[Rfam]
RNA sequence: GCCGCGGGCCGGGCCCCUCUGGCGGCAUGCUGUCAUGCCGUGAUGUCGGACCGCGAUC
Numbered sequence: 001g002c003c004g005c006g007g008g009c010c011g012g013g014c015c016c017c018u019c020u021g022g023c024g025g026c027a028u029g030c031u032g033u034c035a036u037g038c039c040g041u042g043a044u045g046u047c048g049g050a051c052c053g054c055g056a057u058c
Stems, first nucleotide, its partner, number of pairs: 006052002009049004022041008
This 58-nucleotide RNA sequence from Pannonibacter tanglangensis belongs to the Rfam family "terC RNA". Lineage of the source: Bacteria > Pseudomonadati > Pseudomonadota > Hyphomicrobiales > Pannonibacter.